A member of the RNA family "MIR1435 microRNA precursor family" from Oryza meyeriana, 203 nucleotides long. The source organism's lineage runs through Eukaryota, Streptophyta, Magnoliopsida, Mesangiospermae and Oryza meyeriana. The family's consensus secondary structure was predicted with RNAalifold. Rfam 15.1 lists 1,765 matches to the family in 31 species. Gene Ontology terms of the family: miRNA-mediated post-transcriptional gene silencing and RISC complex.
[Rfam]
Nucleotides: 203
Base pairs, nucleotide, nucleotide: 005198006197007196008195009194012191013190014189016187017186018185019184020183021182022181023180024179025178026177031172032171034169035168045158046157047156048155049154050153051152052151056148057147060144061143062142063141064140065139066138067137068136069135073131074130075129077127
Number, partner (000 for none) and nucleotide at each position: 001000u002000a003000g004000u005198u006197u007196u008195g009194u010000u011000c012191u013190a014189a015000c016187u017186c018185a019184a020183a021182u022181u023180u024179c025178u026177c027000u028000a029000a030000c031172u032171u033000c034169g035168a036000c037000c038000g039000a040000g041000a042000u043000u044000a045158u046157a047156g048155g049154a050153a051152a052151a053000a054000u055000g056148c057147a058000c059000c060144a061143a062142c063141a064140u065139c066138u067137a068136c069135a070000a071000u072000a073131u074130a075129a076000c077127a078000a079000a080000u081000a082000a083000a084000u085000g086000c087000a088000c089000u090000a091000u092000c093000a094000a095000g096000a097000c098000a099000u100000g101000a102000u103000u104000c105000a106000u107000g108000g109000u110000g111000g112000a113000u114000u115000u116000a117000a118000u119000g120000a121000a122000a123000c124000u125000a126000a127077u128000u129075u130074u131073a132000u133000g134000u135069u136068g137067u138066a139065g140064a141063u142062g143061u144060u145000g146000a147057u148056g149000c150000a151052u152051u153050u154049u155048u156047c157046u158045a159000u160000a161000a162000a163000c164000a165000c166000a167000g168035u169034c170000a171032a172031a173000g174000u175000u176000a177026g178025a179024g180023a181022a182021g183020u184019u185018u186017g187016a188000c189014u190013u191012a192000a193000g194009a195008c196007a197006a198005a199000a200000c201000u202000a203000a